[Rfam]
Nucleotides: 106
Stems, first nucleotide, its partner, number of pairs: 010093001011060004017032005039054005066090004071084004
Number, partner (000 for none) and nucleotide at each position: 001000c002000c003000c004000c005000a006000c007000a008000a009000a010093c011060a012059c013058g014057g015000g016000a017032g018031c019030a020029c021028g022000c023000a024000c025000c026000a027000g028021c029020g030019u031018g032017c033000u034000g035000a036000g037000a038000g039054g040053a041052c042051g043050g044000c045000u046000a047000g048000g049000g050043c051042c052041g053040u054039c055000g056000a057014c058013c059012g060011u061000a062000u063000g064000a065000a066090c067089c068088u069087g070000a071084c072083c073082g074081g075000g076000u077000a078000a079000u080000g081074c082073c083072g084071g085000c086000g087069u088068a089067g090066g091000g092000a093010g094000g095000a096000g097000a098000a099000u100000c101000a102000a103000g104000c105000a106000u
The family of this 106-nucleotide RNA sequence from Mycobacteroides abscessus is "TPP riboswitch aptamer (THI element)".
The organism belongs to Mycobacteroides abscessus, within Bacteria.
The base pairs follow the family's consensus structure, which is taken from published work.
From the family's description: Vitamin B(1) in its active form thiamin pyrophosphate (TPP) is an essential coenzyme that is synthesised by coupling of pyrimidine and thiazole moieties in bacteria.
It scores 58 bits against the family's covariance model.